[Rfam]
A member of the RNA family "DUF2800 RNA", 164 nucleotides long.
The family's consensus secondary structure is taken from published work.
RNA sequence: CCUGAUGCCGGUACAUCCGCUGGCCACGGAUGAUCCAGUGCCGGUUUCAGGAUAACAAUUUCAUAACAUCAGCUGCCUACUGGAUAAGGAAGCUGCAAUCCCGGAAUGGAGUCAACUCCAUCAGGACUGCGGUUGGUUUCGUAUUGCCUUUUUGCAGCUGACCA
Numbered sequence: 001c002c003u004g005a006u007g008c009c010g011g012u013a014c015a016u017c018c019g020c021u022g023g024c025c026a027c028g029g030a031u032g033a034u035c036c037a038g039u040g041c042c043g044g045u046u047u048c049a050g051g052a053u054a055a056c057a058a059u060u061u062c063a064u065a066a067c068a069u070c071a072g073c074u075g076c077c078u079a080c081u082g083g084a085u086a087a088g089g090a091a092g093c094u095g096c097a098a099u100c101c102c103g104g105a106a107u108g109g110a111g112u113c114a115a116c117u118c119c120a121u122c123a124g125g126a127c128u129g130c131g132g133u134u135g136g137u138u139u140c141g142u143a144u145u146g147c148c149u150u151u152u153u154g155c156a157g158c159u160g161a162c163c164a
Stems, first nucleotide, its partner, number of pairs: 001051005007045007014032005033085006070160007092133005106121005